[Rfam]
Rfam assigns this 199-nucleotide sequence from Bacillus sp. FJAT-26390 to the family "c-di-AMP riboswitch aptamer (ydaO/yuaA leader)". It scores 86 bits against the family's covariance model.

RNA sequence: AUUUACUGAUCGCUGAGUUUCCGUGAAUGCGGAAAACGGGGGAACCACUAAAUAAGCUUUGCGCAUGUUCGAUGUGAGAGUCGAACGGCCGCAGAGCAGGGGUGAAUCUUUGACAGGUGCCAUGGACACCGGUCAAAGUAGGGCGACUCUCACCGCCCGAAUCCGACAGCUAACCUCGUAAGCGUGGACUUGGAGAGGA
Numbered sequence: 001a002u003u004u005a006c007u008g009a010u011c012g013c014u015g016a017g018u019u020u021c022c023g024u025g026a027a028u029g030c031g032g033a034a035a036a037c038g039g040g041g042g043a044a045c046c047a048c049u050a051a052a053u054a055a056g057c058u059u060u061g062c063g064c065a066u067g068u069u070c071g072a073u074g075u076g077a078g079a080g081u082c083g084a085a086c087g088g089c090c091g092c093a094g095a096g097c098a099g100g101g102g103u104g105a106a107u108c109u110u111u112g113a114c115a116g117g118u119g120c121c122a123u124g125g126a127c128a129c130c131g132g133u134c135a136a137a138g139u140a141g142g143g144c145g146a147c148u149c150u151c152a153c154c155g156c157c158c159g160a161a162u163c164c165g166a167c168a169g170c171u172a173a174c175c176u177c178g179u180a181a182g183c184g185u186g187g188a189c190u191u192g193g194a195g196a197g198g199a
Base pairs, nucleotide, nucleotide: 011184012183013182014181018035019034020033021032022031023030024029036179037178038177039176040175041174046099100164101163102162108138109137110136111135112134113133114132141158142157143156144155